[Rfam]
RNA sequence: CCGUAGGGUAUGCGUGGUGAUCUGGUAAGUGUCUCGCUUAUGAGAUCACGCGUAUAUUCUCCGCC
Numbered sequence: 001c002c003g004u005a006g007g008g009u010a011u012g013c014g015u016g017g018u019g020a021u022c023u024g025g026u027a028a029g030u031g032u033c034u035c036g037c038u039u040a041u042g043a044g045a046u047c048a049c050g051c052g053u054a055u056a057u058u059c060u061c062c063g064c065c
Stems, first nucleotide, its partner, number of pairs: 006059011018048006025041006
RNA: mir-5885 microRNA precursor family
Organism: Angiostrongylus costaricensis